This 361-nucleotide sequence from Rhodobium orientis belongs to the Rfam family "Alphaproteobacteria transfer-messenger RNA". Rfam links the family to the GO term RNA catabolic process. Lineage of the source: Bacteria > Pseudomonadota > Alphaproteobacteria > Rhodobiaceae > Rhodobium. Bacterial tmRNA, also known as 10Sa RNA or SsrA, is named for its dual tRNA and mRNA-like properties.
RNA sequence: CCCUUUGCAUGUCGAACCGGCUUUUCCUAUAUUGGGGGAGCCGGUUUGCCGGCUAUGGCGAUAAAUGACCGUCGCAAUAAACCUAUCGGACCCGGGGGCGGUACCCGGCGCCUCCACCACAGCCCAAAGGGCCUUCGAUCUUUGGGUUGCGGCGGGGGCGAAAUAGGAUCGACGAGGGUGUAAAGGGCGCGUUUUCGCUCGGCAUGGUUCCGCCGUUAUCGGGCCAUCUCAAUAGUUGCAAAUGACAACUAUGCUGAGGCUCGUCUCGCUGCGUAACGCAGUGCGAUAACCUCUUUUGAAGCCCUGGCCGUUAGCCCGGUCAGGCGGGGUUCGGGAGCACCUGGCAACAGAAGCUCCCACU
Numbered sequence: 001c002c003c004u005u006u007g008c009a010u011g012u013c014g015a016a017c018c019g020g021c022u023u024u025u026c027c028u029a030u031a032u033u034g035g036g037g038g039a040g041c042c043g044g045u046u047u048g049c050c051g052g053c054u055a056u057g058g059c060g061a062u063a064a065a066u067g068a069c070c071g072u073c074g075c076a077a078u079a080a081a082c083c084u085a086u087c088g089g090a091c092c093c094g095g096g097g098g099c100g101g102u103a104c105c106c107g108g109c110g111c112c113u114c115c116a117c118c119a120c121a122g123c124c125c126a127a128a129g130g131g132c133c134u135u136c137g138a139u140c141u142u143u144g145g146g147u148u149g150c151g152g153c154g155g156g157g158g159c160g161a162a163a164u165a166g167g168a169u170c171g172a173c174g175a176g177g178g179u180g181u182a183a184a185g186g187g188c189g190c191g192u193u194u195u196c197g198c199u200c201g202g203c204a205u206g207g208u209u210c211c212g213c214c215g216u217u218a219u220c221g222g223g224c225c226a227u228c229u230c231a232a233u234a235g236u237u238g239c240a241a242a243u244g245a246c247a248a249c250u251a252u253g254c255u256g257a258g259g260c261u262c263g264u265c266u267c268g269c270u271g272c273g274u275a276a277c278g279c280a281g282u283g284c285g286a287u288a289a290c291c292u293c294u295u296u297u298g299a300a301g302c303c304c305u306g307g308c309c310g311u312u313a314g315c316c317c318g319g320u321c322a323g324g325c326g327g328g329g330u331u332c333g334g335g336a337g338c339a340c341c342u343g344g345c346a347a348c349a350g351a352a353g354c355u356c357c358c359a360c361u
Stems, first nucleotide, its partner, number of pairs: 040053005057199005067193003070189004082178003086175003092108005109160007200215004205226003209223003327342004333358006